[Rfam]
RNA sequence: UAAGGUGGGUCGGCGGUCGCUGGAGUUUUUAAAGCUCCAGAGGAAAGUCCGAGCUCCAGAGGGCAGGGUGCCGGGUAACGCCCGGAGGGGGUAACCCCUGGAAAGUGCCACAGAAAAGAGACCGCCGGUCUACCUUGACCGGUAAGGGUGAAAAGGUGGGGUAAGAGCCCACCGCUGUCGUGGUAACACGGCAGGCACGGCAAACCCCACCCGGAGCAAGACCAAGUAGGGAAGCGUCUGAGGGUGGCCCGCCCGAGCUUCCGGGUCGGUCGCUAGAGCGGUCGGGUAACCGACCGCCAAGAUGAAUGACCGCCACUCCUGAAGGAGAACAGAACUCGGCUUAUGGCCCGCCUUACCCC
Numbered sequence: 001u002a003a004g005g006u007g008g009g010u011c012g013g014c015g016g017u018c019g020c021u022g023g024a025g026u027u028u029u030u031a032a033a034g035c036u037c038c039a040g041a042g043g044a045a046a047g048u049c050c051g052a053g054c055u056c057c058a059g060a061g062g063g064c065a066g067g068g069u070g071c072c073g074g075g076u077a078a079c080g081c082c083c084g085g086a087g088g089g090g091g092u093a094a095c096c097c098c099u100g101g102a103a104a105g106u107g108c109c110a111c112a113g114a115a116a117a118g119a120g121a122c123c124g125c126c127g128g129u130c131u132a133c134c135u136u137g138a139c140c141g142g143u144a145a146g147g148g149u150g151a152a153a154a155g156g157u158g159g160g161g162u163a164a165g166a167g168c169c170c171a172c173c174g175c176u177g178u179c180g181u182g183g184u185a186a187c188a189c190g191g192c193a194g195g196c197a198c199g200g201c202a203a204a205c206c207c208c209a210c211c212c213g214g215a216g217c218a219a220g221a222c223c224a225a226g227u228a229g230g231g232a233a234g235c236g237u238c239u240g241a242g243g244g245u246g247g248c249c250c251g252c253c254c255g256a257g258c259u260u261c262c263g264g265g266u267c268g269g270u271c272g273c274u275a276g277a278g279c280g281g282u283c284g285g286g287u288a289a290c291c292g293a294c295c296g297c298c299a300a301g302a303u304g305a306a307u308g309a310c311c312g313c314c315a316c317u318c319c320u321g322a323a324g325g326a327g328a329a330c331a332g333a334a335c336u337c338g339g340c341u342u343a344u345g346g347c348c349c350g351c352c353u354u355a356c357c358c359c
Stems, first nucleotide, its partner, number of pairs: 001355010012314007020040009045342003049339005054216004061250004066212005071085005086099005100207002105205002107201003122147002124143007155173006174196001175194008220271004230262006242254004278297008
RNA: Bacterial RNase P class A
Organism: Thermosulfuriphilus ammonigenes